Rfam assigns this 126-nucleotide RNA sequence from Acer saccharum to the family "Small nucleolar RNA snoR77".
NCBI's taxonomy places the organism under Eukaryota, Tracheophyta, Spermatophyta, Magnoliopsida, Acer.
RNA sequence: AGGCAGCCUCUUUGUGAUAUCCAUGGCAAAGAAGGUGUUGAACUGCUCGUAAAUUAAUUUUGUUAAUACUCUUCAGAUUUGCUGAGAUUCGUCUAUGAAGCUGGUCUAGUAACGCAUUAGCACAUU
Numbered sequence: 001a002g003g004c005a006g007c008c009u010c011u012u013u014g015u016g017a018u019a020u021c022c023a024u025g026g027c028a029a030a031g032a033a034g035g036u037g038u039u040g041a042a043c044u045g046c047u048c049g050u051a052a053a054u055u056a057a058u059u060u061u062g063u064u065a066a067u068a069c070u071c072u073u074c075a076g077a078u079u080u081g082c083u084g085a086g087a088u089u090c091g092u093c094u095a096u097g098a099a100g101c102u103g104g105u106c107u108a109g110u111a112a113c114g115c116a117u118u119a120g121c122a123c124a125u126u
Stems, first nucleotide, its partner, number of pairs: 002039004007035002009032007017024001063120003069114001070112001075107005081101003086093002
Rfam classes the family as an H/ACA-box small nucleolar RNA.